[Rfam]
Bacteriophage Diversity-Generating Retroelement RNA: a 128-nucleotide RNA. The literature on the family includes a 2025 paper in Nature by Handa et al., "RNA control of reverse transcription in a diversity-generating retroelement". The family's consensus secondary structure is taken from published work. The family's RNA type in Rfam is small RNA.
RNA sequence: GCUUUGGCACGGCUACGGCCUGCCAAGCCGACCUCAAAACGUGGUCAGCCCGGUUAUCCUGCUUCGGCAAACAAUCUACUGGGUCUGGCAGAACGUGGAGUAGCCCUAGGGCGGAACACGGAGCCAGC
Numbered sequence: 001g002c003u004u005u006g007g008c009a010c011g012g013c014u015a016c017g018g019c020c021u022g023c024c025a026a027g028c029c030g031a032c033c034u035c036a037a038a039a040c041g042u043g044g045u046c047a048g049c050c051c052g053g054u055u056a057u058c059c060u061g062c063u064u065c066g067g068c069a070a071a072c073a074a075u076c077u078a079c080u081g082g083g084u085c086u087g088g089c090a091g092a093a094c095g096u097g098g099a100g101u102a103g104c105c106c107u108a109g110g111g112c113g114g115a116a117c118a119c120g121g122a123g124c125c126a127g128c
Base pairs, nucleotide, nucleotide: 001028002027004026005025006024007023008022009021012019013018060069061068062067083128085127086126087125088124089123094120095119096118097117103112104110
Dot-bracket structure: ((.((((((..((....)).))))))))...............................(((....))).............(.(((((....((((.....((.....).)....))))..))))))